This 166-nucleotide RNA sequence from Ruminococcus sp. AF31-8BH belongs to the Rfam family "Clostridiales-1 RNA". It scores 76 bits against the family's covariance model.
[Rfam]
Nucleotides: 166
Stems, first nucleotide, its partner, number of pairs: 001166003005162003013072004019066003023062001025060005031054002034051001036049005076121008086111004093104004128154002130151001135147004
Number, partner (000 for none) and nucleotide at each position: 001166u002165u003164g004000c005162g006161u007160g008000a009000a010000a011000g012000u013072c014071c015070c016069g017000g018000a019066c020065a021064g022000c023062a024000g025060c026059c027058u028057u029056g030000c031054a032053u033000c034051u035000c036049c037048c038047a039046u040045g041000c042000u043000u044000g045040c046039a047038u048037g049036g050000g051034a052000a053032a054031u055000u056029c057028a058027a059026g060025g061000a062023u063000a064021u065020u066019g067000g068000a069016c070015g071014g072013g073000c074000a075000a076121g077120a078119c079118g080117a081116c082115a083114u084000g085000a086111g087110c088109a089108a090000g091000u092000a093104g094103g095102g096101c097000a098000a099000u100000a101096g102095c103094c104093c105000g106000g107000a108089u109088u110087g111086c112000g113000a114083a115082u116081g117080u118079c119078g120077u121076c122000g123000g124000c125000a126000g127000c128154u129153g130151c131000g132000g133000g134000a135147g136146c137145g138144c139000c140000a141000a142000c143000g144138g145137c146136g147135c148000a149000a150000a151130g152000a153129c154128a155000a156000a157000a158000a159000c160007c161006g162005c163000a164003c165002a166001a